[Rfam]
RNA sequence: GGCUCUGUGAUUACUUUGCCAUAUCGGCAGUAUACGCUAUUCUGAAUACAGUGUGAAAGAUACAUAUUUUUAUACUUUAUGAGAGCC
Dot-bracket structure: (((((.............................................................................)))))
RNA: Small nucleolar RNA U54
Organism: Brassica carinata